[Rfam]
Shown here is a 173-nucleotide sequence from Clostridium sp. AM33-3, a member of the family "Clostridiales-1 RNA". By type it is a small RNA. Rfam 15.1 lists 1,172 matches to the family in 137 species. Taxonomically the source falls in Clostridium (Bacteria, Bacillati, Bacillota, Clostridia).

RNA sequence: UGAUACCAGGGUUCCAAAGUCAAAAUCUGACGCAAGCUUGCUUGCAGGAAGAUUUCUGACCUCGGAACCCGCCAAAAAUAUGAGUAAGUAGCCAUUUUUCAAAGAAAAAUGCGCGGAUUAUGAAUAUUUUUGAGGAUUGCGGAAGUGCAAGGCACGUAGCAAUCCGGGCAUCA
Numbered sequence: 001u002g003a004u005a006c007c008a009g010g011g012u013u014c015c016a017a018a019g020u021c022a023a024a025a026u027c028u029g030a031c032g033c034a035a036g037c038u039u040g041c042u043u044g045c046a047g048g049a050a051g052a053u054u055u056c057u058g059a060c061c062u063c064g065g066a067a068c069c070c071g072c073c074a075a076a077a078a079u080a081u082g083a084g085u086a087a088g089u090a091g092c093c094a095u096u097u098u099u100c101a102a103a104g105a106a107a108a109a110u111g112c113g114c115g116g117a118u119u120a121u122g123a124a125u126a127u128u129u130u131u132g133a134g135g136a137u138u139g140c141g142g143a144a145g146u147g148c149a150a151g152g153c154a155c156g157u158a159g160c161a162a163u164c165c166g167g168g169c170a171u172c173a
Base pairs, nucleotide, nucleotide: 001173002172003171004170006168007167010069011068012067013066017062019060020059021058023055024054025053026052027051028050031047032045033044034043035042036041074131075130076129077128078127079126080125081124084121085120086119087118091114092113093111094110095109096108097107098106099105100104134165135164136163137162138161139160140159145155146154147153148152